RNA sequence: GCCAACGUAGCUCAGCUGGCGAGAGCACCUGAUUCGUAAUCAAGAGGUCACGGGUUCGAGUCCCGUCGUUGGCU
Numbered sequence: 001g002c003c004a005a006c007g008u009a010g011c012u013c014a015g016c017u018g019g020c021g022a023g024a025g026c027a028c029c030u031g032a033u034u035c036g037u038a039a040u041c042a043a044g045a046g047g048u049c050a051c052g053g054g055u056u057c058g059a060g061u062c063c064c065g066u067c068g069u070u071g072g073c074u
Stems, first nucleotide, its partner, number of pairs: 001073007010026004028044001030042003050066005
This 74-nucleotide RNA from Nitratiruptor sp. SB155-2 belongs to the Rfam family "tRNA". The family's consensus secondary structure is taken from published work. Transfer RNA (tRNA) molecules are approximately 80 nucleotides in length. The organism belongs to Nitratiruptor, within Bacteria. Rfam classes the family as a transfer RNA.